The family of this 103-nucleotide RNA sequence from Halobacillus sp. BBL2006 is "Purine riboswitch aptamer". The organism belongs to Halobacillus, within Bacteria.
[Rfam]
RNA sequence: UCAAACAAAUAGGUACACCUUCGUAUAAUUUUGGGGAUAUGGCCCAUGAGUUUCUACCGGACCGCCGUAAAUAGGUCUGACUACGCUGGUGAAUAGAUGACAU
Numbered sequence: 001u002c003a004a005a006c007a008a009a010u011a012g013g014u015a016c017a018c019c020u021u022c023g024u025a026u027a028a029u030u031u032u033g034g035g036g037a038u039a040u041g042g043c044c045c046a047u048g049a050g051u052u053u054c055u056a057c058c059g060g061a062c063c064g065c066c067g068u069a070a071a072u073a074g075g076u077c078u079g080a081c082u083a084c085g086c087u088g089g090u091g092a093a094u095a096g097a098u099g100a101c102a103u
Stems, first nucleotide, its partner, number of pairs: 018089002022085004029049002032046004058079006064072001